[Rfam]
RNA: mir-10 microRNA precursor family
Organism: Pediculus humanus
RNA sequence: UUACAUCUACCCUGUAGAUCCGAAUUUGUUUGAUAUCAAACGACAAAUUCGGUUCUAGAGAGGUUUGUGUG
Numbered sequence: 001u002u003a004c005a006u007c008u009a010c011c012c013u014g015u016a017g018a019u020c021c022g023a024a025u026u027u028g029u030u031u032g033a034u035a036u037c038a039a040a041c042g043a044c045a046a047a048u049u050c051g052g053u054u055c056u057a058g059a060g061a062g063g064u065u066u067g068u069g070u071g
Base pairs, nucleotide, nucleotide: 002069003068004067005066011060016056017055018054020052021051022050023049024048025047026046027045028044029043030042